[Rfam]
Shown here is an 86-nucleotide RNA from Sporomusaceae bacterium FL31, a member of the family "S10-Clostridia ribosomal protein leader". By type it is a cis-regulatory leader. A search with the family's covariance model found it, with a score of 39 bits. The source organism's lineage runs through Bacteria, Bacillati, Negativicutes, Selenomonadales and Sporomusaceae. The family's consensus secondary structure is taken from published work. A reference for the family is Eckert and Weinberg (2020), "Discovery of 20 novel ribosomal leader candidates in bacteria and archaea", BMC Microbiol.
RNA sequence: CCAAUGCGAUGACGUGGAAGGUUGCCCGCGUGGUAGCGGGGUGAAUUUCCGCGGAGAAUGUCCGUUCAAAAGAAACCGGGCGAUAA
Number, nucleotide and partner (000 for none) at each position: 001c000002c000003a000004a000005u000006g000007c000008g000009a000010u000011g000012a000013c000014g052015u051016g050017g000018a000019a048020g047021g046022u000023u000024g000025c040026c039027c038028g037029c036030g000031u000032g000033g000034u000035a000036g029037c028038g027039g026040g025041g000042u000043g000044a000045a000046u021047u020048u019049c000050c016051g015052c014053g000054g000055a000056g000057a000058a000059u085060g084061u083062c082063c000064g081065u080066u079067c078068a000069a000070a000071a000072g000073a000074a000075a000076c000077c000078g067079g066080g065081c064082g062083a061084u060085a059086a000